[Rfam]
RNA sequence: GUAAGUGGGUGACAACGAGAGAGAGCACGCCGGAAUGCGUUCAUGCAGCGAGUGCCUGGAGGUGUUCGAGCGUGCCCUCUCCCGUCGUCACCAAUCU
Numbered sequence: 001g002u003a004a005g006u007g008g009g010u011g012a013c014a015a016c017g018a019g020a021g022a023g024a025g026c027a028c029g030c031c032g033g034a035a036u037g038c039g040u041u042c043a044u045g046c047a048g049c050g051a052g053u054g055c056c057u058g059g060a061g062g063u064g065u066u067c068g069a070g071c072g073u074g075c076c077c078u079c080u081c082c083c084g085u086c087g088u089c090a091c092c093a094a095u096c097u
Stems, first nucleotide, its partner, number of pairs: 010090004016084002020080002023077001025075006033067002
RNA: MIR535 microRNA precursor family
Organism: Physcomitrium patens